[Rfam]
RNA sequence: UAGAUCGGAGUCGGCGACCCAAUGGGUAUGCCGAUUUCCCACAUAAUGGCUUCAGGUAUGACUGGUAUGAGAGCUGCAGGAGACCUUGUUGCAAGAAUGG
Numbered sequence: 001u002a003g004a005u006c007g008g009a010g011u012c013g014g015c016g017a018c019c020c021a022a023u024g025g026g027u028a029u030g031c032c033g034a035u036u037u038c039c040c041a042c043a044u045a046a047u048g049g050c051u052u053c054a055g056g057u058a059u060g061a062c063u064g065g066u067a068u069g070a071g072a073g074c075u076g077c078a079g080g081a082g083a084c085c086u087u088g089u090u091g092c093a094a095g096a097a098u099g100g
Stems, first nucleotide, its partner, number of pairs: 007038001010035007017027003073092002076089002079086002

Rfam assigns this 100-nucleotide RNA from Methanosarcina barkeri to the family "Pyrrolysine insertion sequence mtbB". A reference for the family is Theil Have et al. (2013), "Effects of using coding potential, sequence conservation and mRNA structure conservation for predicting pyrroly-sine containing genes", BMC Bioinformatics. It is annotated as a cis-regulatory element. The base pairs follow the family's consensus structure, which was predicted with WAR.